Nucleotides: 043
Base pairs, nucleotide, nucleotide: 003043004042005041007038008037009036010035015032016031017030018029020027021026
Number, partner (000 for none) and nucleotide at each position: 001000c002000c003043g004042g005041c006000u007038c008037c009036g010035g011000u012000u013000c014000a015032c016031c017030u018029c019000a020027c021026g022000c023000a024000c025000g026021u027020g028000c029018g030017a031016g032015g033000a034000c035010c036009c037008g038007g039000c040000g041005g042004c043003c

A member of the RNA family "L31-Actinobacteria ribosomal protein leader" from Saccharothrix variisporea, 43 nucleotides long. NCBI's taxonomy places the organism under Bacteria, Bacillati, Actinomycetota, Actinomycetes, Saccharothrix. It scores 49 bits against the family's covariance model. On this family, see Eckert and Weinberg, BMC Microbiol 2020: "Discovery of 20 novel ribosomal leader candidates in bacteria and archaea". The family's consensus secondary structure is taken from published work.